[Rfam]
RNA sequence: AGGCUGUGAUGAAUGAGAUUGCUAUGCACCACUCUGAUCUAGUGCUGAUAUUCAUCUCAACCCAUAAUUUUUCUGAGCCU
Numbered sequence: 001a002g003g004c005u006g007u008g009a010u011g012a013a014u015g016a017g018a019u020u021g022c023u024a025u026g027c028a029c030c031a032c033u034c035u036g037a038u039c040u041a042g043u044g045c046u047g048a049u050a051u052u053c054a055u056c057u058c059a060a061c062c063c064a065u066a067a068u069u070u071u072u073c074u075g076a077g078c079c080u
Base pairs, nucleotide, nucleotide: 001080002079003078004077
Dot-bracket structure: ((((........................................................................))))